Actino-pnp RNA: a 68-nucleotide sequence from Cellulomonas sp. Leaf395. The match comes from Rfam's covariance-model search (61 bits). The family's consensus secondary structure is taken from published work.
[Rfam]
RNA sequence: UUCGGUCCUCGGUAGUGGCUUCCGGAAGCUCCGCGAGGGGAGUCCGGUGGCCUCGAUCGAAGAUCGCU
Numbered sequence: 001u002u003c004g005g006u007c008c009u010c011g012g013u014a015g016u017g018g019c020u021u022c023c024g025g026a027a028g029c030u031c032c033g034c035g036a037g038g039g040g041a042g043u044c045c046g047g048u049g050g051c052c053u054c055g056a057u058c059g060a061a062g063a064u065c066g067c068u
Base pairs, nucleotide, nucleotide: 003066004065005064006063007062009060010059011058012057013056017052018051019050020049022047023046024045025044026043029042030041031040
Taxonomically the source falls in Cellulomonas (Bacteria, Actinomycetota, Actinomycetes, Micrococcales).